[Rfam]
RNA sequence: AGCACAGCAAUGCACCAUGGCAGGGGCGGGGGAACCACAGGUAAGUCGCCUGGAUUUGGUCUGAUUUGACCGAUUUCAGGCUUGGGGUGAAGCCGUGCUCACGCACGGCCGGGCAACUCCAGCCCGAAUCCGACAGCUCACCUCGCAGGCGUGGGAGAGGAACGCA
Numbered sequence: 001a002g003c004a005c006a007g008c009a010a011u012g013c014a015c016c017a018u019g020g021c022a023g024g025g026g027c028g029g030g031g032g033a034a035c036c037a038c039a040g041g042u043a044a045g046u047c048g049c050c051u052g053g054a055u056u057u058g059g060u061c062u063g064a065u066u067u068g069a070c071c072g073a074u075u076u077c078a079g080g081c082u083u084g085g086g087g088u089g090a091a092g093c094c095g096u097g098c099u100c101a102c103g104c105a106c107g108g109c110c111g112g113g114c115a116a117c118u119c120c121a122g123c124c125c126g127a128a129u130c131c132g133a134c135a136g137c138u139c140a141c142c143u144c145g146c147a148g149g150c151g152u153g154g155g156a157g158a159g160g161a162a163c164g165c166a
Base pairs, nucleotide, nucleotide: 003025005023026146027145028144029143030142031141036084037083085131086130087129093108094107095106096105111125112124113123114122
Rfam assigns this 166-nucleotide RNA sequence from Kitasatospora sp. Root187 to the family "c-di-AMP riboswitch aptamer (ydaO/yuaA leader)". The pairing is the family consensus, mapped onto this sequence. The match comes from Rfam's covariance-model search (68 bits).